[Rfam]
RNA sequence: CCCGACAAAGGCAAAGCCUGAGUAAUCAGGCGGCGCAAAGUUACGGGUCCUUGUUUGUGUUUUCAAAUGCGAAUCAGGAUCGCCGGACCGCCGAAG
Numbered sequence: 001c002c003c004g005a006c007a008a009a010g011g012c013a014a015a016g017c018c019u020g021a022g023u024a025a026u027c028a029g030g031c032g033g034c035g036c037a038a039a040g041u042u043a044c045g046g047g048u049c050c051u052u053g054u055u056u057g058u059g060u061u062u063u064c065a066a067a068u069g070c071g072a073a074u075c076a077g078g079a080u081c082g083c084c085g086g087a088c089c090g091c092c093g094a095a096g
Stems, first nucleotide, its partner, number of pairs: 001096001003093002011036002016031006034082001040088003044085003047080005
RNA: c-di-GMP-I-GGC riboswitch aptamer